[Rfam]
RNA sequence: GCCGAGGUCAGUAACGUGAGCUUGUAACUCAAGUGAGGGCAUUAAGGUGGUUGGACUUGGGCUUUGCUUAAUUUGGUUGGGCUUCUGUUGCACGUACUGACUUGCCCGGUCCAAGUUGGGAGUUGGUCUAUGUGGAAUAGACGAAGGUCUGUGCCACGUGGCUACUAGAGAGGAGGGCACCUCGUCAGGCUGGUUUCACAGAGCAGCGAAAACCUCCCUCUCUCGACAGUGGAAGGAUAACGAGACAGGUGCUCUAUAAGCCCACUAUGGCCAGAUGGGCCCAGCCCAAAGAACAAUCAUUUAU
Numbered sequence: 001g002c003c004g005a006g007g008u009c010a011g012u013a014a015c016g017u018g019a020g021c022u023u024g025u026a027a028c029u030c031a032a033g034u035g036a037g038g039g040c041a042u043u044a045a046g047g048u049g050g051u052u053g054g055a056c057u058u059g060g061g062c063u064u065u066g067c068u069u070a071a072u073u074u075g076g077u078u079g080g081g082c083u084u085c086u087g088u089u090g091c092a093c094g095u096a097c098u099g100a101c102u103u104g105c106c107c108g109g110u111c112c113a114a115g116u117u118g119g120g121a122g123u124u125g126g127u128c129u130a131u132g133u134g135g136a137a138u139a140g141a142c143g144a145a146g147g148u149c150u151g152u153g154c155c156a157c158g159u160g161g162c163u164a165c166u167a168g169a170g171a172g173g174a175g176g177g178c179a180c181c182u183c184g185u186c187a188g189g190c191u192g193g194u195u196u197c198a199c200a201g202a203g204c205a206g207c208g209a210a211a212a213c214c215u216c217c218c219u220c221u222c223u224c225g226a227c228a229g230u231g232g233a234a235g236g237a238u239a240a241c242g243a244g245a246c247a248g249g250u251g252c253u254c255u256a257u258a259a260g261c262c263c264a265c266u267a268u269g270g271c272c273a274g275a276u277g278g279g280c281c282c283a284g285c286c287c288a289a290a291g292a293a294c295a296a297u298c299a300u301u302u303a304u
Stems, first nucleotide, its partner, number of pairs: 001040003004023003008019003028037003045302009056291002058288003062284002066280002069278001071276008079263006086256001090252001092250002097248003101244004106236002110233004115227008126163001128161008137152006165170001172217005182209004190201003
Plant signal recognition particle RNA: a 304-nucleotide RNA sequence from Aquilegia coerulea. The base pairs follow the family's consensus structure, which is taken from published work. The match comes from Rfam's covariance-model search (228 bits). Its family is annotated with signal recognition particle, endoplasmic reticulum targeting and SRP-dependent cotranslational protein targeting to membrane, signal sequence recognition in the Gene Ontology.